[Rfam]
Peptidase-S11 RNA: a 92-nucleotide RNA sequence from Pantoea agglomerans. The match comes from Rfam's covariance-model search (47 bits). The base pairs follow the family's consensus structure, which is taken from published work. NCBI's taxonomy places the organism under Bacteria, Pseudomonadati, Pseudomonadota, Erwiniaceae, Pantoea.
RNA sequence: GGUAUGAUAUCGCCGCCAGCCCGCGCUCUGACCUCACUGAAGCGGGCGGCCUGUGUCGGUCUGACACAGUACAUAUUCAUAACCGGGUUUUU
Numbered sequence: 001g002g003u004a005u006g007a008u009a010u011c012g013c014c015g016c017c018a019g020c021c022c023g024c025g026c027u028c029u030g031a032c033c034u035c036a037c038u039g040a041a042g043c044g045g046g047c048g049g050c051c052u053g054u055g056u057c058g059g060u061c062u063g064a065c066a067c068a069g070u071a072c073a074u075a076u077u078c079a080u081a082a083c084c085g086g087g088u089u090u091u092u
Base pairs, nucleotide, nucleotide: 015050016049017048019047020046021045022044023043024042027039051069052068053067054066055065056064